Rfam assigns this 83-nucleotide sequence from Aedes aegypti to the family "mir-275 microRNA precursor family". NCBI's taxonomy places the organism under Eukaryota, Pancrustacea, Pterygota, Endopterygota, Stegomyia. The sequence is in the family's curated seed alignment.
RNA sequence: AUCCUUUCGAUUUCGCGCGCUAAGCAGGAACCGAGACUUUGUCAUUUGCUAGCAGUCAGGUACCUGAAGUAGCGCGCGUGAUC
Number, nucleotide and partner (000 for none) at each position: 001a000002u000003c000004c000005u000006u000007u000008c000009g083010a082011u081012u080013u000014c078015g000016c076017g075018c074019g073020c072021u071022a070023a000024g000025c000026a000027g000028g000029a000030a061031c060032c059033g000034a000035g057036a056037c055038u054039u000040u000041g000042u000043c000044a000045u000046u000047u000048g000049c000050u000051a000052g000053c000054a038055g037056u036057c035058a000059g032060g031061u030062a000063c000064c000065u000066g000067a000068a000069g000070u022071a021072g020073c019074g018075c017076g016077c000078g014079u000080g012081a011082u010083c009
Its family is annotated with RISC complex and miRNA-mediated post-transcriptional gene silencing in the Gene Ontology.